[Rfam]
RNA sequence: UAUUUGCGUGAAGGAUUGUAGUGACAUCCUUUUUAAUUUUGAUAAAAAUUGAAAAGAUAUAACGAAAAGCCUGACCUUUA
Numbered sequence: 001u002a003u004u005u006g007c008g009u010g011a012a013g014g015a016u017u018g019u020a021g022u023g024a025c026a027u028c029c030u031u032u033u034u035a036a037u038u039u040u041g042a043u044a045a046a047a048a049u050u051g052a053a054a055a056g057a058u059a060u061a062a063c064g065a066a067a068a069g070c071c072u073g074a075c076c077u078u079u080a
Stems, first nucleotide, its partner, number of pairs: 012072003016068002021063002026058003032053005037046003
The family of this 80-nucleotide sequence is "Flavo-1 RNA". The family's RNA type in Rfam is small RNA. Rfam's curators put it in the seed alignment.